[Rfam]
RNA sequence: GGGAUGUGAUGAGUGGUUGGUUCUCGCUUUUCACUGAAGAUGCGAGAUGGGUGUCCGCCCCAAAAGCCUGGUUACGACAAUCGGACGCUCUAAUCUUAACCAAUCUGAUCCC
Numbered sequence: 001g002g003g004a005u006g007u008g009a010u011g012a013g014u015g016g017u018u019g020g021u022u023c024u025c026g027c028u029u030u031u032c033a034c035u036g037a038a039g040a041u042g043c044g045a046g047a048u049g050g051g052u053g054u055c056c057g058c059c060c061c062a063a064a065a066g067c068c069u070g071g072u073u074a075c076g077a078c079a080a081u082c083g084g085a086c087g088c089u090c091u092a093a094u095c096u097u098a099a100c101c102a103a104u105c106u107g108a109u110c111c112c
Base pairs, nucleotide, nucleotide: 001112002111003110004109014102015101016100017099018098023046024045025044026043027042049090050089051088052087053086054085055084069083070082071081072080
A member of the RNA family "Small nucleolar RNA Z279/snoR105/snoR108" from Carpinus fangiana, 112 nucleotides long. A reference for the family is Marker et al. (2002), "Experimental RNomics: identification of 140 candidates for small non-messenger RNAs in the plant Arabidopsis thaliana", Curr Biol. Rfam 15.1 lists 906 matches to the family in 223 species. The source organism's lineage runs through Eukaryota, Viridiplantae, Spermatophyta, fabids and Carpinus. This family includes the plant snoRNAs known as Z279, snoR105 and snoR108. The family's consensus secondary structure was predicted with PFOLD. It is annotated as a C/D-box small nucleolar RNA.